[Rfam]
RNA sequence: GUGGGAGGAAGCUCACUGUAGAUGUCACAAACUGAGUGCUCGUCACUCAUCCAGUCACCUCGGGGAAAGUCUGAGACAAGAGCCAAUCGCUGCCGUUGCAGGACAUCACCUGAUUCGGGUGAGUGAGUGAACAGAAAUCGUGGCCACCGCGUGCUGGCUCACACAGGGGAAGCCUGGGACACGCCGCUCCCGGCAGCCCAGGCGGAUGUGCUGCACGCCGGCUUGGAAUCGCUCACGGCUGGCGGAAUGGGUGCGAUGUGUGAGGUGGGGCACAGCUCCAGAACCCAAGUCAGACCACUCCCCCCUAC
Number, nucleotide and partner (000 for none) at each position: 001g308002u307003g306004g305005g000006a000007g302008g301009a000010a000011g000012c264013u263014c262015a261016c260017u000018g000019u000020a000021g061022a060023u000024g058025u000026c000027a000028c000029a000030a000031a000032c000033u000034g048035a047036g046037u045038g044039c000040u000041c000042g000043u000044c038045a037046c036047u035048c034049a000050u000051c000052c000053a000054g000055u000056c000057a000058c024059c000060u022061c021062g000063g000064g000065g000066a000067a000068a000069g000070u000071c293072u292073g291074a290075g000076a000077c000078a000079a000080g000081a240082g239083c238084c237085a000086a000087u000088c000089g000090c000091u105092g104093c000094c102095g000096u000097u000098g000099c000100a000101g000102g094103a000104c092105a091106u122107c121108a120109c119110c118111u117112g000113a000114u000115u000116c000117g111118g110119g109120u108121g107122a106123g236124u235125g234126a233127g232128u231129g230130a000131a000132c000133a000134g000135a000136a000137a000138u000139c000140g000141u000142g000143g222144c221145c220146a000147c000148c000149g000150c000151g000152u000153g000154c000155u000156g000157g000158c000159u000160c000161a000162c000163a000164c000165a000166g000167g000168g000169g000170a000171a000172g000173c000174c000175u000176g000177g000178g000179a000180c000181a000182c000183g000184c000185c000186g000187c000188u000189c000190c000191c000192g000193g000194c000195a000196g000197c000198c000199c000200a000201g000202g000203c000204g000205g000206a000207u000208g000209u000210g000211c000212u000213g000214c000215a000216c000217g000218c000219c000220g145221g144222c143223u000224u000225g000226g000227a000228a000229u000230c129231g128232c127233u126234c125235a124236c123237g084238g083239c082240u081241g000242g000243c000244g000245g000246a000247a000248u000249g000250g000251g000252u000253g000254c000255g000256a000257u000258g000259u000260g016261u015262g014263a013264g012265g000266u280267g279268g278269g277270g276271c275272a000273c000274a000275g271276c270277u269278c268279c267280a266281g000282a000283a000284c000285c000286c000287a000288a000289g000290u074291c073292a072293g071294a000295c000296c000297a000298c000299u000300c000301c008302c007303c000304c000305c004306u003307a002308c001